The record is a 69-nucleotide sequence from Dactylosporangium sucinum, which matches "ASpks TB sRNA" in Rfam. It is annotated as an antisense RNA. The base pairs follow the family's consensus structure, which is taken from published work.
RNA sequence: CUUGACCGAGCCGAGCCACAGCGGCUCGGUCCGGUGCACGCCGUAGGUGGCGAGCAGGGCGCGGGCCUC
Numbered sequence: 001c002u003u004g005a006c007c008g009a010g011c012c013g014a015g016c017c018a019c020a021g022c023g024g025c026u027c028g029g030u031c032c033g034g035u036g037c038a039c040g041c042c043g044u045a046g047g048u049g050g051c052g053a054g055c056a057g058g059g060c061g062c063g064g065g066c067c068u069c
Stems, first nucleotide, its partner, number of pairs: 014026004027063001032059001037054001039052001041050003